[Rfam]
RNA sequence: UAGGAGCCGUGCCGGACACUCCACAAACUAUCCGGCACUAGGUGGAAAAGAAGGAGGAUACAGGUCCGUAGGCCCACGGUGCAGCAGUGUGGAGACCUGCUGUAAAGCGGCGGUGGAGCCACCGCAUGCGGAGCCGUCCGCGCGGAGGCGGGGCGGUCAGGGCUGUAACGAUAUGGCA
Numbered sequence: 001u002a003g004g005a006g007c008c009g010u011g012c013c014g015g016a017c018a019c020u021c022c023a024c025a026a027a028c029u030a031u032c033c034g035g036c037a038c039u040a041g042g043u044g045g046a047a048a049a050g051a052a053g054g055a056g057g058a059u060a061c062a063g064g065u066c067c068g069u070a071g072g073c074c075c076a077c078g079g080u081g082c083a084g085c086a087g088u089g090u091g092g093a094g095a096c097c098u099g100c101u102g103u104a105a106a107g108c109g110g111c112g113g114u115g116g117a118g119c120c121a122c123c124g125c126a127u128g129c130g131g132a133g134c135c136g137u138c139c140g141c142g143c144g145g146a147g148g149c150g151g152g153g154c155g156g157u158c159a160g161g162g163c164u165g166u167a168a169c170g171a172u173a174u175g176g177c178a
Base pairs, nucleotide, nucleotide: 009038010037011036012035013034014033015032016031018029066079067078068077069076071164072163073162074161075160080104081103082102083101084100085099086098087097089096090095107129108128109127110125111124112123113122114121133157134156135155136154137153138152139151141150142149143148
The family of this 178-nucleotide RNA is "malK-I RNA". The sequence is in the family's curated seed alignment. The base pairs follow the family's consensus structure, which is taken from published work. The family's RNA type in Rfam is cis-regulatory element.